[Rfam]
RNA sequence: CGAGUCGGCCAGAUGAUCGCGGCCAGCAAUGGCUGAGGAAAGUCCGGACUCCACAGAGCAGGGUGGUGGGUAACGCCCACCCGGGGUGACCCGCGGGACAGUGCCACAGAAAACAGACCGCCUGGCAACAGGUAAGGGUGAAACGGUGGUGUAAGAGACCACCAGCGCUCCGGGUGACCGGGGCGGCUGGGUAAACCCCACUCGGAGCAAGACCAAGAAGGCCCUUCGGGGCCGCGGAUGUCGUCUGAGCGCUGCUCGCGCGAGACAUCCGGGUAGGUUGCAUGAUCCCGCCGGCAACGACGGGCCUCAGAUAGAUGAUCAUCCUCGACAGAAUCCGGCUUACCGGCCGGCUCGUCCC
Numbered sequence: 001c002g003a004g005u006c007g008g009c010c011a012g013a014u015g016a017u018c019g020c021g022g023c024c025a026g027c028a029a030u031g032g033c034u035g036a037g038g039a040a041a042g043u044c045c046g047g048a049c050u051c052c053a054c055a056g057a058g059c060a061g062g063g064u065g066g067u068g069g070g071u072a073a074c075g076c077c078c079a080c081c082c083g084g085g086g087u088g089a090c091c092c093g094c095g096g097g098a099c100a101g102u103g104c105c106a107c108a109g110a111a112a113a114c115a116g117a118c119c120g121c122c123u124g125g126c127a128a129c130a131g132g133u134a135a136g137g138g139u140g141a142a143a144c145g146g147u148g149g150u151g152u153a154a155g156a157g158a159c160c161a162c163c164a165g166c167g168c169u170c171c172g173g174g175u176g177a178c179c180g181g182g183g184c185g186g187c188u189g190g191g192u193a194a195a196c197c198c199c200a201c202u203c204g205g206a207g208c209a210a211g212a213c214c215a216a217g218a219a220g221g222c223c224c225u226u227c228g229g230g231g232c233c234g235c236g237g238a239u240g241u242c243g244u245c246u247g248a249g250c251g252c253u254g255c256u257c258g259c260g261c262g263a264g265a266c267a268u269c270c271g272g273g274u275a276g277g278u279u280g281c282a283u284g285a286u287c288c289c290g291c292c293g294g295c296a297a298c299g300a301c302g303g304g305c306c307u308c309a310g311a312u313a314g315a316u317g318a319u320c321a322u323c324c325u326c327g328a329c330a331g332a333a334u335c336c337g338g339c340u341u342a343c344c345g346g347c348c349g350g351c352u353c354g355u356c357c358c
Stems, first nucleotide, its partner, number of pairs: 001354010012323007020035006040341003044338005049207004056257004061203005066080005081095001082093004096198002101196002103192003118137002120133005145163006165187001166185008211279004237269006249261004287304004292299002